RNA sequence: UGAUGAUAUAGGUGUCACAGAUUAAAUAUGUGUUCAUGCUUGCAUGAGUAAACAUAUUUAAUCUGAUGCCCCUAACAAGCAUGAGGAAGUAGGCAUAUGUGCCGGAUUCCGAAUGCUUGUAGGAUUGCGAGAGCGAAGCGGAGCAAUCCGUAUAUCAUCA
Numbered sequence: 001u002g003a004u005g006a007u008a009u010a011g012g013u014g015u016c017a018c019a020g021a022u023u024a025a026a027u028a029u030g031u032g033u034u035c036a037u038g039c040u041u042g043c044a045u046g047a048g049u050a051a052a053c054a055u056a057u058u059u060a061a062u063c064u065g066a067u068g069c070c071c072c073u074a075a076c077a078a079g080c081a082u083g084a085g086g087a088a089g090u091a092g093g094c095a096u097a098u099g100u101g102c103c104g105g106a107u108u109c110c111g112a113a114u115g116c117u118u119g120u121a122g123g124a125u126u127g128c129g130a131g132a133g134c135g136a137a138g139c140g141g142a143g144c145a146a147u148c149c150g151u152a153u154a155u156c157a158u159c160a
Base pairs, nucleotide, nucleotide: 001160002159003158004157005156006155007154012071014069015068019064020063021062022061023060024059025058026057027056028055029054030053031052033050034047035046036045037044038043075120076119077118078117079116080115081114082113085110086109087108088107092103093102094101095100122149123148124147125146126145127144128143133139134138
Shown here is a 160-nucleotide RNA from Butyrivibrio sp. Su6, a member of the family "Clostridiales-1 RNA". By type it is a small RNA. Lineage of the source: Bacteria > Clostridia > Lachnospirales > Lachnospiraceae > Butyrivibrio. The base pairs follow the family's consensus structure, which is taken from published work.